[Rfam]
RNA sequence: GUUCCCUAUGAUGGUUUGGAUUCAACCAUGCUAAUUCUGAUCAUUCUGUGAUUGAAGCAUUUUUCUUUUUCCUAAUUUUCUGAGGGAACU
Numbered sequence: 001g002u003u004c005c006c007u008a009u010g011a012u013g014g015u016u017u018g019g020a021u022u023c024a025a026c027c028a029u030g031c032u033a034a035u036u037c038u039g040a041u042c043a044u045u046c047u048g049u050g051a052u053u054g055a056a057g058c059a060u061u062u063u064u065c066u067u068u069u070u071c072c073u074a075a076u077u078u079u080c081u082g083a084g085g086g087a088a089c090u
Base pairs, nucleotide, nucleotide: 001089002088003087004086005085006084007083
Notes
Shown here is a 90-nucleotide RNA sequence from Vitis vinifera, a member of the family "Small nucleolar RNA snoR53Y". NCBI's taxonomy places the organism under Eukaryota, Euphyllophyta, Mesangiospermae, Gunneridae, Vitis. It is one of the family's seed sequences.